Shown here is a 70-nucleotide RNA from Mus musculus, a member of the family "mir-32 microRNA precursor family". Rfam's curators put it in the seed alignment. Lineage of the source: Eukaryota > Opisthokonta > Deuterostomia > Vertebrata > Mus.
RNA sequence: GGAGAUAUUGCACAUUACUAAGUUGCAUGUUGUCACGGCCUCAAUGCAAUUUAGUGUGUGUGAUAUUUUC
Numbered sequence: 001g002g003a004g005a006u007a008u009u010g011c012a013c014a015u016u017a018c019u020a021a022g023u024u025g026c027a028u029g030u031u032g033u034c035a036c037g038g039c040c041u042c043a044a045u046g047c048a049a050u051u052u053a054g055u056g057u058g059u060g061u062g063a064u065a066u067u068u069u070c
Stems, first nucleotide, its partner, number of pairs: 006065010017055012
The family's consensus secondary structure was predicted with RNAalifold.